A member of the RNA family "mir-296 microRNA precursor family" from Mus musculus, 78 nucleotides long.
RNA sequence: GGGCCUUUCUGGAGGGCCCCCCCUCAAUCCUGUUGUGCUCGCUUCAGAGGGUUGGGUGGAGGCUCUCCUGAAGGUGUC
Numbered sequence: 001g002g003g004c005c006u007u008u009c010u011g012g013a014g015g016g017c018c019c020c021c022c023c024u025c026a027a028u029c030c031u032g033u034u035g036u037g038c039u040c041g042c043u044u045c046a047g048a049g050g051g052u053u054g055g056g057u058g059g060a061g062g063c064u065c066u067c068c069u070g071a072a073g074g075u076g077u078c
Stems, first nucleotide, its partner, number of pairs: 005074005012067007020059002022056002025054007033047003
Dot-bracket structure: ....(((((..(((((((.((((.(((((((.(((.........)))))))))))).)).)))))))..)))))....

Pairs were carried over by alignment from the consensus structure, which was predicted with RNAalifold.